[Rfam]
RNA sequence: CCCUUUGAAUUCCCGGCCGAAAGGCACUAUAUUCGCCGUGCCGGGAAACCGGCUAUGGCAAUAAACUGGCGAUGCAAUAAGCCAAUCGGACCCGGGGGCGGUACCCGGCGCCUCCACCACAAACGGCCGCAAGGGGCCGGUUGUGAUGGGGGCGAAACAGGAUCGACGAUGGUGUAAAGAUCGUUCUUUUGCCCGGCAUGAUACCGCCGUUAUCGGGUCACCUUAAUAGUUGCAAACGACAACUAUGCAGAGGCACGUCUCGCUGCCUAACGGCGGUGCGACAGCUUCACUGAAACUCCUGGCGGGUAUGCUCUGCUAGGCGGGGUUCGGAGGCACCUGGCAACAGAAGCCUCCACU
Number, nucleotide and partner (000 for none) at each position: 001c000002c000003c000004u000005u000006u000007g000008a000009a000010u000011u000012c000013c000014c000015g000016g000017c000018c000019g000020a000021a000022a000023g000024g000025c000026a000027c000028u000029a000030u000031a000032u000033u000034c000035g000036c000037c000038g000039u000040g053041c052042c051043g050044g049045g000046a000047a000048a000049c044050c043051g042052g041053c040054u000055a000056u000057g193058g192059c191060a190061a189062u000063a000064a000065a000066c000067u000068g185069g184070c183071g182072a181073u180074g000075c000076a000077a000078u000079a000080a000081g000082c172083c171084a170085a000086u169087c168088g167089g000090a000091c000092c108093c107094g106095g105096g104097g000098g000099c000100g000101g000102u000103a000104c096105c095106c094107g093108g092109c154110g153111c152112c151113u150114c149115c148116a000117c000118c000119a000120c000121a000122a000123a000124c000125g000126g000127c000128c000129g000130c000131a000132a000133g000134g000135g000136g000137c000138c000139g000140g000141u000142u000143g000144u000145g000146a000147u000148g115149g114150g113151g112152g111153c110154g109155a000156a000157a000158c000159a000160g000161g000162a000163u000164c000165g000166a000167c088168g087169a086170u084171g083172g082173u000174g000175u000176a000177a000178a000179g000180a073181u072182c071183g070184u069185u068186c000187u000188u000189u061190u060191g059192c058193c057194c209195g208196g207197c206198a000199u220200g219201a218202u000203a000204c216205c215206g197207c196208c195209g194210u000211u000212a000213u000214c000215g205216g204217g000218u201219c200220a199221c000222c000223u000224u000225a000226a000227u000228a000229g000230u000231u000232g000233c000234a000235a000236a000237c000238g000239a000240c000241a000242a000243c000244u000245a000246u000247g000248c000249a000250g000251a000252g000253g000254c000255a000256c000257g000258u000259c000260u000261c000262g000263c000264u000265g000266c000267c000268u000269a000270a000271c000272g000273g000274c000275g000276g000277u000278g000279c000280g000281a000282c000283a000284g000285c000286u000287u000288c000289a000290c000291u000292g000293a000294a000295a000296c000297u000298c000299c000300u000301g000302g000303c000304g000305g000306g000307u000308a000309u000310g000311c000312u000313c000314u000315g000316c000317u000318a000319g000320g000321c000322g000323g338324g337325g336326u335327u000328c000329g354330g353331a352332g351333g350334c349335a326336c325337c324338u323339g000340g000341c000342a000343a000344c000345a000346g000347a000348a000349g334350c333351c332352u331353c330354c329355a000356c000357u000
Overview: A member of the RNA family "Alphaproteobacteria transfer-messenger RNA" from Oricola thermophila, 357 nucleotides long. Lineage of the source: Bacteria > Pseudomonadati > Hyphomicrobiales > Ahrensiaceae > Oricola. Rfam links the family to the GO term RNA catabolic process. Rfam classes the family as a non-coding RNA gene. The base pairs follow the family's consensus structure, which is taken from published work.